[Rfam]
RNA: Plastid-clpP 5UTR RNA
Organism: Papaver somniferum
Nucleotides: 066
Base pairs, nucleotide, nucleotide: 003022004021006019007018008017009016010015040065041064042063048057049056050055
Number, partner (000 for none) and nucleotide at each position: 001000a002000a003022u004021u005000c006019u007018g008017u009016u010015c011000g012000u013000a014000g015010g016009a017008a018007c019006a020000a021004a022003g023000a024000g025000a026000a027000g028000c029000a030000a031000a032000u033000c034000u035000a036000u037000u038000a039000a040065c041064c042063c043000g044000a045000u046000a047000a048057g049056u050055a051000c052000c053000a054000a055050u056049a057048c058000g059000c060000a061000a062000u063042g064041g065040g066000g